mir-8517 microRNA precursor family: a 106-nucleotide RNA sequence from Plutella xylostella.

RNA sequence: UUAUAGGACAUUUUAGCUAUUGAACUGUUUUGUGCCCAUCUUCCUUAGAACAAAUUGUUCUUUGACAGAGAGGGACAAAAGUUCAAUAGCUAAAACGUCCUAUAAC
Numbered sequence: 001u002u003a004u005a006g007g008a009c010a011u012u013u014u015a016g017c018u019a020u021u022g023a024a025c026u027g028u029u030u031u032g033u034g035c036c037c038a039u040c041u042u043c044c045u046u047a048g049a050a051c052a053a054a055u056u057g058u059u060c061u062u063u064g065a066c067a068g069a070g071a072g073g074g075a076c077a078a079a080a081g082u083u084c085a086a087u088a089g090c091u092a093a094a095a096c097g098u099c100c101u102a103u104a105a106c
Stems, first nucleotide, its partner, number of pairs: 001105006011095016029069005049059004